[Rfam]
RNA: TPP riboswitch aptamer (THI element)
RNA sequence: CAUAUAUAGUCGGGGGGCCUAAAAGGCUGAGAGCGCACAUUGCGAGACCCGUUGAACCUGAUUCAGUUAACACUGACGUAGGGAACUAUCAGUCUUGCUUC
Numbered sequence: 001c002a003u004a005u006a007u008a009g010u011c012g013g014g015g016g017g018c019c020u021a022a023a024a025g026g027c028u029g030a031g032a033g034c035g036c037a038c039a040u041u042g043c044g045a046g047a048c049c050c051g052u053u054g055a056a057c058c059u060g061a062u063u064c065a066g067u068u069a070a071c072a073c074u075g076a077c078g079u080a081g082g083g084a085a086c087u088a089u090c091a092g093u094c095u096u097g098c099u100u101c
Base pairs, nucleotide, nucleotide: 006089007088008087009086010085011051012050013049014048017027018026019025020024034044035043036042037041057082058081059080060079063076064075065074066073